[Rfam]
RNA sequence: UCCAUCGCGAGGUGGAAUCUGAAGGAAGUCGGAGGCAAAAUCUCGGUCUGAGGAACACGAACCACAUAAAAGGCUGAAUUACACUGGAUGAGUUUGCGCAACAAAACAAAGUCCAAUACUACCCAAAGUGUAUACAGUAAAUGUGGCAGAUAUAUGAGAUGAAGGCGGUCGUU
Numbered sequence: 001u002c003c004a005u006c007g008c009g010a011g012g013u014g015g016a017a018u019c020u021g022a023a024g025g026a027a028g029u030c031g032g033a034g035g036c037a038a039a040a041u042c043u044c045g046g047u048c049u050g051a052g053g054a055a056c057a058c059g060a061a062c063c064a065c066a067u068a069a070a071a072g073g074c075u076g077a078a079u080u081a082c083a084c085u086g087g088a089u090g091a092g093u094u095u096g097c098g099c100a101a102c103a104a105a106a107c108a109a110a111g112u113c114c115a116a117u118a119c120u121a122c123c124c125a126a127a128g129u130g131u132a133u134a135c136a137g138u139a140a141a142u143g144u145g146g147c148a149g150a151u152a153u154a155u156g157a158g159a160u161g162a163a164g165g166c167g168g169u170c171g172u173u
Stems, first nucleotide, its partner, number of pairs: 001016006028173001030171003035166002040160006046151005062146006073138003080132005086114004092107004

Rfam assigns this 173-nucleotide sequence from Sedimentibacter sp. zth1 to the family "Group II catalytic intron D1-D4-3". Rfam describes the family as follows. Group II introns are found in rRNA, tRNA and mRNA of organelles in fungi, plants and protists, and also in mRNA in bacteria. On this family, see Bonen and Vogel, Trends Genet 2001: "The ins and outs of group II introns". The match comes from Rfam's covariance-model search (152 bits). Pairs were carried over by alignment from the consensus structure.